Description:
The record is a 132-nucleotide RNA sequence from Phainopepla nitens, which matches "Small nucleolar RNA SNORA22" in Rfam. The family has 31 seed sequences and 883 matches in Rfam 15.1. Rfam links the family to the GO terms nucleolus and RNA processing. A search with the family's covariance model found it, with a score of 117 bits. The family's RNA type in Rfam is H/ACA-box small nucleolar RNA. Lineage of the source: Eukaryota > Gnathostomata > Sauropsida > Sauria > Phainopepla.
[Rfam]
RNA sequence: UUGCACAGCGAACACCCAAGUGUGCUUUGUAGCUCCCUUGGUUUCAGCUCUGUGCUACAUUAAUCUGUCCUUUUCCUCUGCAUUGGAAGGAUUUGCAUUCCUUUUAUAUGUAUUCAGAAGGACAGAACAGCU
Numbered sequence: 001u002u003g004c005a006c007a008g009c010g011a012a013c014a015c016c017c018a019a020g021u022g023u024g025c026u027u028u029g030u031a032g033c034u035c036c037c038u039u040g041g042u043u044u045c046a047g048c049u050c051u052g053u054g055c056u057a058c059a060u061u062a063a064u065c066u067g068u069c070c071u072u073u074u075c076c077u078c079u080g081c082a083u084u085g086g087a088a089g090g091a092u093u094u095g096c097a098u099u100c101c102u103u104u105u106a107u108a109u110g111u112a113u114u115c116a117g118a119a120g121g122a123c124a125g126a127a128c129a130g131c132u
Base pairs, nucleotide, nucleotide: 003055004054005053006052007051008050010049016041017040018039019038020037022035024033025032026031057071061067062066077118078117079116080115081110082109083108085105086104087103088102089101090100091099

About the family: ACA22 is a member of the H/ACA class of snoRNA that guide the sites of modification of uridines to pseudouridines.